[Rfam]
RNA: Small nucleolar RNA SNORA70
Organism: Erinaceus europaeus
RNA sequence: CUGCCGCCAAUUAAGCCGACCGUGCUGCCCUCCCCCUGGCGCCCGGUGUGCAGUGGCUGCAAACAGCAGCCUCCUGGGUAGUGUGUGAGGCCUGUAGCUUGUACAGGCUGCCCUAAGGGACCCUGGAGACAGCC
Numbered sequence: 001c002u003g004c005c006g007c008c009a010a011u012u013a014a015g016c017c018g019a020c021c022g023u024g025c026u027g028c029c030c031u032c033c034c035c036c037u038g039g040c041g042c043c044c045g046g047u048g049u050g051c052a053g054u055g056g057c058u059g060c061a062a063a064c065a066g067c068a069g070c071c072u073c074c075u076g077g078g079u080a081g082u083g084u085g086u087g088a089g090g091c092c093u094g095u096a097g098c099u100u101g102u103a104c105a106g107g108c109u110g111c112c113c114u115a116a117g118g119g120a121c122c123c124u125g126g127a128g129a130c131a132g133c134c
Base pairs, nucleotide, nucleotide: 002052003051004050019047020046021045022044025041027040028039077122078121079120089109090108091107092106093105